[Rfam]
RNA sequence: GAGACCUUAUUAUGAAGGUCAUUUUGUAAAGCUUUUUGAAGCAGGAAAUGACUGGAGACUCAGGGUCUC
Numbered sequence: 001g002a003g004a005c006c007u008u009a010u011u012a013u014g015a016a017g018g019u020c021a022u023u024u025u026g027u028a029a030a031g032c033u034u035u036u037u038g039a040a041g042c043a044g045g046a047a048a049u050g051a052c053u054g055g056a057g058a059c060u061c062a063g064g065g066u067c068u069c
Stems, first nucleotide, its partner, number of pairs: 001069005017053009032041003
RNA: Selenocysteine insertion sequence 1